[Rfam]
RNA sequence: CGGGUGGCAUCUAUGAAGAGCCACACCUAGGAAAUGGUUGUAACCGCGAAAAUUUUCAUAUUAAAUUAUCCGCUUAGAUCCGCAGGACUGAGACGGGAGG
Numbered sequence: 001c002g003g004g005u006g007g008c009a010u011c012u013a014u015g016a017a018g019a020g021c022c023a024c025a026c027c028u029a030g031g032a033a034a035u036g037g038u039u040g041u042a043a044c045c046g047c048g049a050a051a052a053u054u055u056u057c058a059u060a061u062u063a064a065a066u067u068a069u070c071c072g073c074u075u076a077g078a079u080c081c082g083c084a085g086g087a088c089u090g091a092g093a094c095g096g097g098a099g100g
Stems, first nucleotide, its partner, number of pairs: 002027002004024005010019002070096003073092005079087003
The family of this 100-nucleotide RNA from Sporomusa acidovorans is "pan motif". Lineage of the source: Bacteria > Bacillota > Sporomusaceae > Sporomusa > Sporomusa acidovorans.